[Rfam]
RNA sequence: GACAAAUUUAGAGGUAGCGAUGCAGAUGAGUAUCUUCUUUUAGCCGGCAGGCGUUUCAGAAGGAGGGAAAGGCAAUCAUCGCCGAAUGGAAGAGCAGGGCGCUGCUCCUCUGUGGGGCUUCAGGGAAGACCUGAAGCACUCCUUUCCUUGGAAAGGGCGCUAGAUGAUGA
Numbered sequence: 001g002a003c004a005a006a007u008u009u010a011g012a013g014g015u016a017g018c019g020a021u022g023c024a025g026a027u028g029a030g031u032a033u034c035u036u037c038u039u040u041u042a043g044c045c046g047g048c049a050g051g052c053g054u055u056u057c058a059g060a061a062g063g064a065g066g067g068a069a070a071g072g073c074a075a076u077c078a079u080c081g082c083c084g085a086a087u088g089g090a091a092g093a094g095c096a097g098g099g100c101g102c103u104g105c106u107c108c109u110c111u112g113u114g115g116g117g118c119u120u121c122a123g124g125g126a127a128g129a130c131c132u133g134a135a136g137c138a139c140u141c142c143u144u145u146c147c148u149u150g151g152a153a154a155g156g157g158c159g160c161u162a163g164a165u166g167a168u169g170a
Stems, first nucleotide, its partner, number of pairs: 006165006017082006025073001033066008086113005092107006114140002117137008142155005
RNA: Lysine riboswitch aptamer
Organism: Clostridiaceae bacterium JG1575